[Rfam]
Rfam assigns this 124-nucleotide RNA sequence from Momordica charantia to the family "Small nucleolar RNA SNORD14". Its family is annotated with RNA processing and nucleolus in the Gene Ontology. Pairs were carried over by alignment from the consensus structure, which was predicted with PFOLD.

RNA sequence: UGUUAAUGAUGACAUCUCUAAAGGCUCGUUUCUCAAAACAUUCGCAGUUGCCGUCCAAGAGCUUUCGCCUUUGCCAGGCUUGAGAGCUAAUGCUGGUCUAAUCCUUCCUUGGAUGUCUGAAACU
Numbered sequence: 001u002g003u004u005a006a007u008g009a010u011g012a013c014a015u016c017u018c019u020a021a022a023g024g025c026u027c028g029u030u031u032c033u034c035a036a037a038a039c040a041u042u043c044g045c046a047g048u049u050g051c052c053g054u055c056c057a058a059g060a061g062c063u064u065u066c067g068c069c070u071u072u073g074c075c076a077g078g079c080u081u082g083a084g085a086g087c088u089a090a091u092g093c094u095g096g097u098c099u100a101a102u103c104c105u106u107c108c109u110u111g112g113a114u115g116u117c118u119g120a121a122a123c124u
Base pairs, nucleotide, nucleotide: 002123003122004121061087062086063085064084065083066082
The organism belongs to Momordica, within Eukaryota. A search with the family's covariance model found it, with a score of 77 bits. Rfam's curators write: U14 small nucleolar RNA (U14 snoRNA) is required for early cleavages of eukaryotic precursor rRNAs.